[Rfam]
RNA sequence: CACCAGGGACGGCCCUGGCGGAAUCCACAUCCGGGGACGGCCCC
Numbered sequence: 001c002a003c004c005a006g007g008g009a010c011g012g013c014c015c016u017g018g019c020g021g022a023a024u025c026c027a028c029a030u031c032c033g034g035g036g037a038c039g040g041c042c043c044c
Stems, first nucleotide, its partner, number of pairs: 001020001003018006033044004
The family of this 44-nucleotide sequence from Comamonas aquatica is "Guanidine-II riboswitch aptamer (mini-ykkC)".
Gene Ontology term of the family: regulation of gene expression.
The source organism's lineage runs through Bacteria, Pseudomonadota, Betaproteobacteria, Comamonadaceae and Comamonas aquatica.